Shown here is a 91-nucleotide RNA, a member of the family "c-di-GMP-II-GAG riboswitch aptamer".
A reference for the family is Weinberg et al. (2017), "Bioinformatic analysis of riboswitch structures uncovers variant classes with altered ligand specificity", Proc Natl Acad Sci U S A.
RNA sequence: GGCAUGGAGCGGGGCUCCAGCAGCGCGGCGUUCCCAUCCGGUCGCCUCGACCGUCGCGCUGAGGCCAACGGCGAGACCGACCCUCCGGGGU
Numbered sequence: 001g002g003c004a005u006g007g008a009g010c011g012g013g014g015c016u017c018c019a020g021c022a023g024c025g026c027g028g029c030g031u032u033c034c035c036a037u038c039c040g041g042u043c044g045c046c047u048c049g050a051c052c053g054u055c056g057c058g059c060u061g062a063g064g065c066c067a068a069c070g071g072c073g074a075g076a077c078c079g080a081c082c083c084u085c086c087g088g089g090g091u
Base pairs, nucleotide, nucleotide: 001091003089005087006086007085008084009083011081013066014065015064023059024058025057026056027055028054029053030052040078041077042074043073044072045071046070